[Rfam]
Nucleotides: 065
Stems, first nucleotide, its partner, number of pairs: 001065009011055002016051002021041004027035003
Number, partner (000 for none) and nucleotide at each position: 001065a002064a003063u004062c005061c006060c007059c008058u009057g010000a011055u012054u013000g014000g015000a016051c017050c018000g019000a020000a021041g022040c023039c024038c025000a026000a027035c028034g029033c030000a031000c032000c033029g034028c035027g036000c037000c038024g039023g040022g041021c042000a043000c044000a045000u046000c047000g048000u049000a050017g051016g052000c053000a054012g055011a056000c057009c058008g059007g060006g061005g062004g063003a064002u065001u

The family of this 65-nucleotide sequence is "DUF3800-VIII RNA". By type it is a small RNA. About the family: Bacteroidetes, Cyanobacteria, Firmicutes, Planctomycetes (1 example), Proteobacteria, Tenericutes (1 example). The sequence is in the family's curated seed alignment.